[Rfam]
RNA sequence: GGAGCAGCUUCUGGAGAGACCGGGUAUCCCGGCGCCGACGGAUUCACAAUCUCAGGCAAAAGGACAGAAGAGUAACA
Dot-bracket structure: .......((((((......((((.....)))).(((((..(((.....))))).))).......)))))).......
Numbered sequence: 001g002g003a004g005c006a007g008c009u010u011c012u013g014g015a016g017a018g019a020c021c022g023g024g025u026a027u028c029c030c031g032g033c034g035c036c037g038a039c040g041g042a043u044u045c046a047c048a049a050u051c052u053c054a055g056g057c058a059a060a061a062g063g064a065c066a067g068a069a070g071a072g073u074a075a076c077a
Stems, first nucleotide, its partner, number of pairs: 008070006020032004034057003037053002041051003
The record is a 77-nucleotide sequence from Caldibacillus thermoamylovorans, which matches "Glycine riboswitch aptamer" in Rfam. Its Rfam clan is "Glycine riboswitch clan". It scores 51 bits against the family's covariance model. Lineage of the source: Bacteria > Bacillota > Bacilli > Bacillaceae > Caldibacillus.